[Rfam]
RNA: Plastid-psbM 3UTR RNA
RNA sequence: UAGUAUGGUAGAAAGAACAAAUAUUUCUUUCUACCAUACUAUCUAUUACUGUUAUUGGAGUGUAUAAAGUUG
Dot-bracket structure: ((((((((((((((((.........))))))))))))))))...............................
Numbered sequence: 001u002a003g004u005a006u007g008g009u010a011g012a013a014a015g016a017a018c019a020a021a022u023a024u025u026u027c028u029u030u031c032u033a034c035c036a037u038a039c040u041a042u043c044u045a046u047u048a049c050u051g052u053u054a055u056u057g058g059a060g061u062g063u064a065u066a067a068a069g070u071u072g
Stems, first nucleotide, its partner, number of pairs: 001041016